[Rfam]
RNA sequence: UGGAGGACUGAGAAGGUAAGCCAGUUAACUCCUUGCUGUAGCUUACUGGUUCAAGCCUCCAAAAUUGUACUUGUGCAAUAGCAGCUCAUGCUUCCUUCUUGACGUGAGGGAAAGCAGUACUGCAGUUGCACAUAAAAA
Number, nucleotide and partner (000 for none) at each position: 001u000002g060003g059004a058005g057006g056007a000008c000009u000010g000011a000012g000013a000014a000015g047016g046017u045018a044019a000020g000021c000022c038023a037024g036025u035026u000027a000028a000029c000030u000031c000032c000033u000034u000035g025036c024037u023038g022039u000040a000041g000042c000043u000044u018045a017046c016047u015048g000049g000050u000051u000052c000053a000054a000055g000056c006057c005058u004059c003060c002061a000062a000063a000064a000065u000066u000067g000068u000069a000070c000071u000072u000073g000074u000075g000076c000077a000078a000079u000080a000081g129082c128083a000084g000085c000086u125087c000088a000089u122090g121091c000092u000093u000094c000095c000096u117097u116098c114099u113100u112101g000102a000103c110104g000105u000106g000107a000108g000109g000110g103111a000112a100113a099114g098115c000116a097117g096118u000119a000120c000121u090122g089123c000124a000125g086126u000127u000128g082129c081130a000131c000132a000133u000134a000135a000136a000137a000138a000
RNA: Small nucleolar RNA SNORA47
Organism: Calypte anna